About this RNA:
The family of this 98-nucleotide RNA from Caenorhabditis japonica is "mir-36 microRNA precursor family".
RNA sequence: UUUAUAUGGGUCAAUAGGCCUCGGGUGUUUACCACUGUGGUGAUACGCAAGUUGGCGAUAUCACCGGGUGAAAAACUCCGGAGGCCUAGUCCUAUUUC
Numbered sequence: 001u002u003u004a005u006a007u008g009g010g011u012c013a014a015u016a017g018g019c020c021u022c023g024g025g026u027g028u029u030u031a032c033c034a035c036u037g038u039g040g041u042g043a044u045a046c047g048c049a050a051g052u053u054g055g056c057g058a059u060a061u062c063a064c065c066g067g068g069u070g071a072a073a074a075a076c077u078c079c080g081g082a083g084g085c086c087u088a089g090u091c092c093u094a095u096u097u098c
Base pairs, nucleotide, nucleotide: 015088016087017086018085019084020083021082024079025078027076028075029074030073033070034069035068036067038066040064041063042062043061044060045059
Background: Lineage of the source: Eukaryota > Metazoa > Protostomia > Rhabditina > Caenorhabditis. It scores 57 bits against the family's covariance model. Pairs were carried over by alignment from the consensus structure, which was predicted with WAR.